Shown here is a 109-nucleotide RNA from Paenirhizobium selenitireducens, a member of the family "Rhizobiales sRNA Atu_At1". The source organism's lineage runs through Bacteria, Pseudomonadati, Alphaproteobacteria, Paenirhizobium and Paenirhizobium selenitireducens. It is annotated as a small RNA. The base pairs follow the family's consensus structure, which was predicted with CMfinder. The literature on the family includes a 2012 paper in RNA Biol by Wilms et al., "Deep sequencing uncovers numerous small RNAs on all four replicons of the plant pathogen Agrobacterium tumefaciens".

RNA sequence: CGCGAGGCCGUGCCAACCGGACGCGACGGGAAAUGGGGAAUACGGAGGUUUUUCCGGUUUCUCUCCGUAGCCAACGAAACGGCAGACGAGCCCCUUACCCGUCCGGCCC
Numbered sequence: 001c002g003c004g005a006g007g008c009c010g011u012g013c014c015a016a017c018c019g020g021a022c023g024c025g026a027c028g029g030g031a032a033a034u035g036g037g038g039a040a041u042a043c044g045g046a047g048g049u050u051u052u053u054c055c056g057g058u059u060u061c062u063c064u065c066c067g068u069a070g071c072c073a074a075c076g077a078a079a080c081g082g083c084a085g086a087c088g089a090g091c092c093c094c095u096u097a098c099c100c101g102u103c104c105g106g107c108c109c
Stems, first nucleotide, its partner, number of pairs: 006108004011023002014020001025103006035094004041069007070083003